This 87-nucleotide sequence from Gossypium mustelinum belongs to the Rfam family "MIR7486 microRNA precursor family". The family has 9 seed sequences and 10,132 matches in Rfam 15.1. Gene Ontology terms of the family: RISC complex and miRNA-mediated post-transcriptional gene silencing. The organism belongs to Gossypium, within Eukaryota.
[Rfam]
RNA sequence: CACGUCAGCGCGCUAUGCUGAUGUGGCAACAAAGCGCGUCCUUGAAAGCGCAAUUUGUGUCCACGUCAUCAAAGCACGCUGACGUGG
Dot-bracket structure: ((((((((((.(((.((.(((.((((..(((((..(((..........)))..)))))..)))).))).)).))).)))))))))).